[Rfam]
Nucleotides: 081
Stems, first nucleotide, its partner, number of pairs: 008038009023077005040067003045062001049058002
Number, partner (000 for none) and nucleotide at each position: 001000g002000a003000g004000u005000c006000c007000g008038g009037g010036g011035u012034u013033c014032u015031a016030u017000u018000g019000u020000a021000a022000a023077u024076g025075c026074c027073c028000g029000a030016a031015u032014a033013g034012a035011a036010c037009c038008c039000u040067g041066u042065g043000c044000a045062a046000g047000u048000g049058g050057u051000u052000u053000g054000u055000c056000c057050a058049c059000u060000g061000a062045u063000g064000u065042c066041g067040u068000u069000u070000u071000u072000a073027g074026g075025g076024c077023a078000u079000u080000u081000g
Overview:
Coronavirus frameshifting stimulation element: an 81-nucleotide sequence from Bat coronavirus. The family's consensus secondary structure is taken from published work. On this family, see Baranov et al., Virology 2005: "Programmed ribosomal frameshifting in decoding the SARS-CoV genome". It is annotated as a frameshift element. Rfam describes the family as follows. This family represents a conserved stem-loop found in Coronaviruses which can promote ribosomal frameshifting. This family interacts with a downstream region to form a pseudoknot structure, the region varies according to the virus but pseudoknot formation is known to stimulate frameshifting. In the classical situation a sequence 32nt downstream of the stem is complementary to part of the loop. In other Coronaviruses however, there is another stem loop structure around 150nt downstream that can interact with this family to form kissing stem loops and stimulate frameshifting. It is one of the family's seed sequences.